[Rfam]
RNA sequence: GGCCUCCCUCUGUGGGGCAAUCGAUCUGGGAGCCCCAUGAUUGAUCACCCUGCAGAGAGAGGCC
Numbered sequence: 001g002g003c004c005u006c007c008c009u010c011u012g013u014g015g016g017g018c019a020a021u022c023g024a025u026c027u028g029g030g031a032g033c034c035c036c037a038u039g040a041u042u043g044a045u046c047a048c049c050c051u052g053c054a055g056a057g058a059g060a061g062g063c064c
Stems, first nucleotide, its partner, number of pairs: 001064006008057010020045007029036002
RNA: mir-9242 microRNA precursor family
Organism: Myotis myotis